The record is a 109-nucleotide RNA sequence from Allostigmatella aurantiaca, which matches "TPP riboswitch aptamer (THI element)" in Rfam. Taxonomically the source falls in Allostigmatella aurantiaca (Bacteria, Myxococcota, Myxococcales, Cystobacterineae). Pairs were carried over by alignment from the consensus structure, which is taken from published work. About the family: Vitamin B(1) in its active form thiamin pyrophosphate (TPP) is an essential coenzyme that is synthesised by coupling of pyrimidine and thiazole moieties in bacteria. It is one of the family's seed sequences.
RNA sequence: CGUUGUCGCUAGGGGUGCCCCCGUCAGGGGCUGAGAUGGCCGUGGACCGGCCAGACCCUUUGAACCUGAACCGGGUCAUACCGGCGGAGGGAAGCGGCGGGCGCUCCAA
Numbered sequence: 001c002g003u004u005g006u007c008g009c010u011a012g013g014g015g016u017g018c019c020c021c022c023g024u025c026a027g028g029g030g031c032u033g034a035g036a037u038g039g040c041c042g043u044g045g046a047c048c049g050g051c052c053a054g055a056c057c058c059u060u061u062g063a064a065c066c067u068g069a070a071c072c073g074g075g076u077c078a079u080a081c082c083g084g085c086g087g088a089g090g091g092a093a094g095c096g097g098c099g100g101g102c103g104c105u106c107c108a109a
Stems, first nucleotide, its partner, number of pairs: 006097005011059004016053001017031005038052005065090003071084004